Overview
This 178-nucleotide sequence from Vibrio aquimaris belongs to the Rfam family "Lysine riboswitch aptamer". Pairs were carried over by alignment from the consensus structure, which is taken from published work.
[Rfam]
RNA sequence: UUUUGCAGAAGAGGAGCACUACCCAGGUAGGUGUUUUGUGGGGCCACAACUCCAAUACACAACACUGAGGGGGAGUAGUGCCGAGGUAGAUCAAGAUUGUGGAUUUGAUCUGCCGGUUGACUUGGGUUGAGUCCCAUCAACUGUCACCAGCUCAGUCUGGUGAAGAGCUUCUGAGGUC
Numbered sequence: 001u002u003u004u005g006c007a008g009a010a011g012a013g014g015a016g017c018a019c020u021a022c023c024c025a026g027g028u029a030g031g032u033g034u035u036u037u038g039u040g041g042g043g044c045c046a047c048a049a050c051u052c053c054a055a056u057a058c059a060c061a062a063c064a065c066u067g068a069g070g071g072g073g074a075g076u077a078g079u080g081c082c083g084a085g086g087u088a089g090a091u092c093a094a095g096a097u098u099g100u101g102g103a104u105u106u107g108a109u110c111u112g113c114c115g116g117u118u119g120a121c122u123u124g125g126g127u128u129g130a131g132u133c134c135c136a137u138c139a140a141c142u143g144u145c146a147c148c149a150g151c152u153c154a155g156u157c158u159g160g161u162g163a164a165g166a167g168c169u170u171c172u173g174a175g176g177u178c
Stems, first nucleotide, its partner, number of pairs: 006173006016081007024073001030066006037059001085114011115142006144163007